RNA sequence: GGUCACGAGAACCAGCGCCAAGCCCCGGCUCGCUGGUCGGCAACCCCGGUCACGACGGGGUGCUCCCGGGGAAGACCGGGCCGGCCCGCGGGCCGGCAACCGUGACGG
Numbered sequence: 001g002g003u004c005a006c007g008a009g010a011a012c013c014a015g016c017g018c019c020a021a022g023c024c025c026c027g028g029c030u031c032g033c034u035g036g037u038c039g040g041c042a043a044c045c046c047c048g049g050u051c052a053c054g055a056c057g058g059g060g061u062g063c064u065c066c067c068g069g070g071g072a073a074g075a076c077c078g079g080g081c082c083g084g085c086c087c088g089c090g091g092g093c094c095g096g097c098a099a100c101c102g103u104g105a106c107g108g
Base pairs, nucleotide, nucleotide: 001077002076003075004074009038011037012036013035014034015033016032021030022029039064040063041062044060045059046058080097081096082095083094084093085092086091
The family of this 108-nucleotide RNA from Cellulomonas persica is "SAM (S-adenosyl methionine) riboswitch aptamer". SAM-IV is a mRNA element that regulates gene expression via direct sensing of S-adenosylmethionine (SAM or AdoMet).